Shown here is a 46-nucleotide RNA sequence from Rhizobium leguminosarum, a member of the family "Xanthine riboswitch aptamer (NMT1 RNA)". The source organism's lineage runs through Bacteria, Pseudomonadota, Rhizobium, Rhizobium leguminosarum and Rhizobium leguminosarum bv. viciae. The base pairs follow the family's consensus structure, which is taken from published work.
RNA sequence: AUCCGGAGUAGAAGCAGUCCGGCCUUGCCCGGACAUUGCUCCUCAA
Numbered sequence: 001a002u003c004c005g006g007a008g009u010a011g012a013a014g015c016a017g018u019c020c021g022g023c024c025u026u027g028c029c030c031g032g033a034c035a036u037u038g039c040u041c042c043u044c045a046a
Base pairs, nucleotide, nucleotide: 005042006041007040008039009038010037015031018033019032021029022028023027